[Rfam]
Shown here is a 56-nucleotide RNA from Atractylodes lancea, a member of the family "Plastid-psbA-4 3UTR RNA".
RNA sequence: AAAAGGAGCAAUAGCUUCCCUCUUGAUAAAACAAGAGGGAAGCUAUUGCUCCUUUU
Number, nucleotide and partner (000 for none) at each position: 001a000002a055003a054004a053005g052006g051007a050008g049009c048010a047011a046012u045013a044014g000015c000016u000017u040018c039019c000020c037021u036022c035023u034024u033025g032026a000027u000028a000029a000030a000031a000032c025033a024034a023035g022036a021037g020038g000039g018040a017041a000042g000043c000044u013045a012046u011047u010048g009049c008050u007051c006052c005053u004054u003055u002056u000

Source information: Rfam's curators put it in the seed alignment. About the family: Plastid psbA-4 is a non-coding RNA (ncRNA) present in plastids. It was identified in inverted repeat sequences in the 3 prime untranslate region (3UTR) of photosystem II quinone-binding protein (psbA). Rfam classes the family as a cis-regulatory element. The family is grouped with related families in Rfam's "Plastid-psbA 3UTR RNA clan". NCBI's taxonomy places the organism under Eukaryota, Viridiplantae, Cardueae, Carlininae, Atractylodes.